RNA sequence: CGCCGCCACCCCUACGACGGAUCGUCCGGCACGUACCUGCCGGUGGGAGGACACACCA
Dot-bracket structure: ........((((((...........((((((......)))))))))).))........
Numbered sequence: 001c002g003c004c005g006c007c008a009c010c011c012c013u014a015c016g017a018c019g020g021a022u023c024g025u026c027c028g029g030c031a032c033g034u035a036c037c038u039g040c041c042g043g044u045g046g047g048a049g050g051a052c053a054c055a056c057c058a
Stems, first nucleotide, its partner, number of pairs: 009050002011047004026043006
Shown here is a 58-nucleotide RNA from Pseudokineococcus marinus, a member of the family "msiK RNA". Taxonomically the source falls in Pseudokineococcus (Bacteria, Bacillati, Actinomycetota, Kineosporiaceae). It scores 54 bits against the family's covariance model. The family's RNA type in Rfam is cis-regulatory element.